[Rfam]
RNA sequence: CCGUCGGGAUCCACCUCCUCCCGGUGAACGACGGAUCGGCCGGUACCGACCUCCUCCCCGGUGCCCGCCACUCAAACGACACCCGCCGCACCUCCUCCCGCGGCGGGUGUUGUUU
Numbered sequence: 001c002c003g004u005c006g007g008g009a010u011c012c013a014c015c016u017c018c019u020c021c022c023g024g025u026g027a028a029c030g031a032c033g034g035a036u037c038g039g040c041c042g043g044u045a046c047c048g049a050c051c052u053c054c055u056c057c058c059c060g061g062u063g064c065c066c067g068c069c070a071c072u073c074a075a076a077c078g079a080c081a082c083c084c085g086c087c088g089c090a091c092c093u094c095c096u097c098c099c100g101c102g103g104c105g106g107g108u109g110u111u112g113u114u115u
Base pairs, nucleotide, nucleotide: 001033005030006029009025010024038069039068040067042065043064044063045062046061047060079110080109081108082107083106084105085104086103087102088101089100
RNA: Alphaproteobacterial ar14